[Rfam]
RNA sequence: CCCUUUGCAAUCCACGCGGCAAGCCCCUAUAUUCAGAUCGUUGGUUUCGGCCAACUAUGGACAUAAACGCGCUCGUAAUAAGCGGAUCGGACCCGGGGGCGGUACCCGGCGGCUCCACCAUAAAAACCUGUCGUUGGAAGGGGUUAAGGGGCCGAAACAGGAUCGACGAACGUCUAAAGGGGUUUGCUUUGUCCCGGUGAGUUACCACCGUUAUCGGUACACUAAGCAUAAUUGCCAACGACAAUCGUGCUCCGGUUGCUCUCGCAGCGUAAGCUGUUGGAAACACCGAAACUUAAGCCCUUGCCUCUAGCAAGGUAAGGCGGGGUUCGCAGGCACCUGGCAACAGAAGCCUGCACU
Numbered sequence: 001c002c003c004u005u006u007g008c009a010a011u012c013c014a015c016g017c018g019g020c021a022a023g024c025c026c027c028u029a030u031a032u033u034c035a036g037a038u039c040g041u042u043g044g045u046u047u048c049g050g051c052c053a054a055c056u057a058u059g060g061a062c063a064u065a066a067a068c069g070c071g072c073u074c075g076u077a078a079u080a081a082g083c084g085g086a087u088c089g090g091a092c093c094c095g096g097g098g099g100c101g102g103u104a105c106c107c108g109g110c111g112g113c114u115c116c117a118c119c120a121u122a123a124a125a126a127c128c129u130g131u132c133g134u135u136g137g138a139a140g141g142g143g144u145u146a147a148g149g150g151g152c153c154g155a156a157a158c159a160g161g162a163u164c165g166a167c168g169a170a171c172g173u174c175u176a177a178a179g180g181g182g183u184u185u186g187c188u189u190u191g192u193c194c195c196g197g198u199g200a201g202u203u204a205c206c207a208c209c210g211u212u213a214u215c216g217g218u219a220c221a222c223u224a225a226g227c228a229u230a231a232u233u234g235c236c237a238a239c240g241a242c243a244a245u246c247g248u249g250c251u252c253c254g255g256u257u258g259c260u261c262u263c264g265c266a267g268c269g270u271a272a273g274c275u276g277u278u279g280g281a282a283a284c285a286c287c288g289a290a291a292c293u294u295a296a297g298c299c300c301u302u303g304c305c306u307c308u309a310g311c312a313a314g315g316u317a318a319g320g321c322g323g324g325g326u327u328c329g330c331a332g333g334c335a336c337c338u339g340g341c342a343a344c345a346g347a348a349g350c351c352u353g354c355a356c357u
Base pairs, nucleotide, nucleotide: 040055041054042053043052044051059194060193061192062191063190069187070186071183072182073181074180083172084171087169088168089167093109094108095107096106097105110154111153112152113151114150115149116148195210196209197208198207201220202219204218205217206216323338324337325336326335329354330353331352332351333350334349
Alphaproteobacteria transfer-messenger RNA: a 357-nucleotide RNA sequence from Roseovarius faecimaris. From the family's description: Bacterial tmRNA, also known as 10Sa RNA or SsrA, is named for its dual tRNA and mRNA-like properties. Its role is to liberate the mRNA from a stalled ribosome. To accomplish this part of the tmRNA is used as a reading frame that ends in a translation stop signal.